[Rfam]
RNA sequence: AUGUAGGAUAAGAUAUUUGCGCCCAUGAUUGCUGAAGUCAGUCGUGGACUCAUUAUAGCAUCGUAUGUUUUUAUAGGCAAUCCAAAAAAACCUGGCGAACCGGCCAGGUUCUUUUUUAU
Numbered sequence: 001a002u003g004u005a006g007g008a009u010a011a012g013a014u015a016u017u018u019g020c021g022c023c024c025a026u027g028a029u030u031g032c033u034g035a036a037g038u039c040a041g042u043c044g045u046g047g048a049c050u051c052a053u054u055a056u057a058g059c060a061u062c063g064u065a066u067g068u069u070u071u072u073a074u075a076g077g078c079a080a081u082c083c084a085a086a087a088a089a090a091c092c093u094g095g096c097g098a099a100c101c102g103g104c105c106a107g108g109u110u111c112u113u114u115u116u117u118a119u
Stems, first nucleotide, its partner, number of pairs: 034074001036072002040066001043063002084115004089110007

Bacillus sRNA ncr1015: a 119-nucleotide RNA sequence from Paenibacillus sp. J31TS4. The organism belongs to Paenibacillus, within Bacteria. For this family Rfam cites "Identification of regulatory RNAs in Bacillus subtilis" (Irnov et al., Nucleic Acids Res, 2010). It scores 66 bits against the family's covariance model. The family's RNA type in Rfam is small RNA. The family's consensus secondary structure is taken from published work.